[Rfam]
RNA sequence: ACAAUCACAAAGAUCUGUGUCCAGCGGUCCUGACGCGCCUUCGGGUGCUGUUGGUCGACUGCUGCGACAGUUCGACGACCCAUGGAACCUUCUAUGCAAUGGAGCACAUCCGGUUGACAGAUCUGAGAGCAAUUGCGGCGCACAUCUUGAGCUCUCCGUGAGCUCGAUGUGUCGUCCGGGCGCUAUAUUCCAAAGCGUUCCUGAGCCCGUCGGGCCUUGAAGGUUGGGACAAACCAUAGCUUGCCUACAGCA
Numbered sequence: 001a002c003a004a005u006c007a008c009a010a011a012g013a014u015c016u017g018u019g020u021c022c023a024g025c026g027g028u029c030c031u032g033a034c035g036c037g038c039c040u041u042c043g044g045g046u047g048c049u050g051u052u053g054g055u056c057g058a059c060u061g062c063u064g065c066g067a068c069a070g071u072u073c074g075a076c077g078a079c080c081c082a083u084g085g086a087a088c089c090u091u092c093u094a095u096g097c098a099a100u101g102g103a104g105c106a107c108a109u110c111c112g113g114u115u116g117a118c119a120g121a122u123c124u125g126a127g128a129g130c131a132a133u134u135g136c137g138g139c140g141c142a143c144a145u146c147u148u149g150a151g152c153u154c155u156c157c158g159u160g161a162g163c164u165c166g167a168u169g170u171g172u173c174g175u176c177c178g179g180g181c182g183c184u185a186u187a188u189u190c191c192a193a194a195g196c197g198u199u200c201c202u203g204a205g206c207c208c209g210u211c212g213g214g215c216c217u218u219g220a221a222g223g224u225u226g227g228g229a230c231a232a233a234c235c236a237u238a239g240c241u242u243g244c245c246u247a248c249a250g251c252a
Stems, first nucleotide, its partner, number of pairs: 011124008019068003022064003026060004030054005035048005076116005085105001088102002135175003143169004149165006179245003182240005196226002200223003205215004

Record summary: This 252-nucleotide RNA sequence from Sphaerulina musiva belongs to the Rfam family "A. fumigatus sRNA Afu_309". Taxonomically the source falls in Sphaerulina musiva (Eukaryota, Fungi, leotiomyceta, Mycosphaerellales). On this family, see Jochl et al., Nucleic Acids Res 2008: "Small ncRNA transcriptome analysis from Aspergillus fumigatus suggests a novel mechanism for regulation of protein synthesis". Pairs were carried over by alignment from the consensus structure, which was predicted with WAR.